[Rfam]
RNA sequence: CUGCGUGUGGCUGAUGACAGCACUCCUGCUGAGACUCUGUGAUUGUUGUCUCAAAGUAAACGCCCUGACGCACUGUGG
Number, nucleotide and partner (000 for none) at each position: 001c000002u000003g000004c000005g073006u072007g071008u070009g069010g021011c020012u019013g018014a000015u000016g000017a000018c013019a012020g011021c010022a000023c000024u000025c000026c000027u000028g000029c048030u000031g000032a047033g046034a000035c000036u000037c000038u000039g000040u000041g000042a000043u000044u000045g000046u033047u032048g029049u000050c000051u000052c000053a000054a000055a000056g000057u000058a000059a000060a000061c000062g000063c000064c000065c000066u000067g000068a000069c009070g008071c007072a006073c005074u000075g000076u000077g000078g000
RNA: Small nucleolar RNA U105B
Organism: Rhinopithecus roxellana